Shown here is a 139-nucleotide sequence from Eoetvoesiella caeni, a member of the family "radC RNA". The family has 148 seed sequences and 500 matches in Rfam 15.1. It is annotated as a cis-regulatory element. Pairs were carried over by alignment from the consensus structure, which is taken from published work.
RNA sequence: CCAUUCUCCCCCUGCAUUGCCGAUGUAUCGGCAGCAGCCCGCAGCCAGGGUGUCAAGGCUGCCGUGGGUUCCGCCCACGCCACCCACCAGUUCGCUUCGGCAUCUCACCGGCGAACGCUGCCCACCGGGGCAUCGAUGC
Numbered sequence: 001c002c003a004u005u006c007u008c009c010c011c012c013u014g015c016a017u018u019g020c021c022g023a024u025g026u027a028u029c030g031g032c033a034g035c036a037g038c039c040c041g042c043a044g045c046c047a048g049g050g051u052g053u054c055a056a057g058g059c060u061g062c063c064g065u066g067g068g069u070u071c072c073g074c075c076c077a078c079g080c081c082a083c084c085c086a087c088c089a090g091u092u093c094g095c096u097u098c099g100g101c102a103u104c105u106c107a108c109c110g111g112c113g114a115a116c117g118c119u120g121c122c123c124a125c126c127g128g129g130g131c132a133u134c135g136a137u138g139c
Stems, first nucleotide, its partner, number of pairs: 012037003019032005041062006049083001063079006111139003119132005